[Rfam]
RNA sequence: UCCAUACCCAUGUGUGUAGAACUCAAAAGGAUCAUCUUUAAAUUCGGCACAGAUCUCUAUAAAAGUUAUCACAUGAGUGUGAGACUUGACUUUUCUAGAGAUCUGUGCUAAAUUUAAUGAUGAUCCUUUGGGGUCCUACAUAUAUGGGUGUAGG
Numbered sequence: 001u002c003c004a005u006a007c008c009c010a011u012g013u014g015u016g017u018a019g020a021a022c023u024c025a026a027a028a029g030g031a032u033c034a035u036c037u038u039u040a041a042a043u044u045c046g047g048c049a050c051a052g053a054u055c056u057c058u059a060u061a062a063a064a065g066u067u068a069u070c071a072c073a074u075g076a077g078u079g080u081g082a083g084a085c086u087u088g089a090c091u092u093u094u095c096u097a098g099a100g101a102u103c104u105g106u107g108c109u110a111a112a113u114u115u116a117a118u119g120a121u122g123a124u125c126c127u128u129u130g131g132g133g134u135c136c137u138a139c140a141u142a143u144a145u146g147g148g149u150g151u152a153g154g
Stems, first nucleotide, its partner, number of pairs: 002153001004151010015140005021134004026129003030125003034121003038117007046109014061094008069082005
The record is a 154-nucleotide RNA from Amborella trichopoda, which matches "MIR8565 microRNA precursor family" in Rfam. The base pairs follow the family's consensus structure, which was predicted with RNAalifold. Rfam links the family to the GO terms RISC complex and miRNA-mediated post-transcriptional gene silencing. NCBI's taxonomy places the organism under Eukaryota, Viridiplantae, Streptophytina, Spermatophyta, Amborella. The match comes from Rfam's covariance-model search (136 bits).